[Rfam]
RNA: Small nucleolar RNA SNORD73
Organism: Phainopepla nitens
RNA sequence: AAUGAAUGAUGACAAAAUGUUUCGGUCCCAGAUGAUGUGGAAUGAUUCCAUUUCCCAUUUCUUCUGACAUU
Dot-bracket structure: ((((...............................................................))))
Numbered sequence: 001a002a003u004g005a006a007u008g009a010u011g012a013c014a015a016a017a018u019g020u021u022u023c024g025g026u027c028c029c030a031g032a033u034g035a036u037g038u039g040g041a042a043u044g045a046u047u048c049c050a051u052u053u054c055c056c057a058u059u060u061c062u063u064c065u066g067a068c069a070u071u
Stems, first nucleotide, its partner, number of pairs: 001071004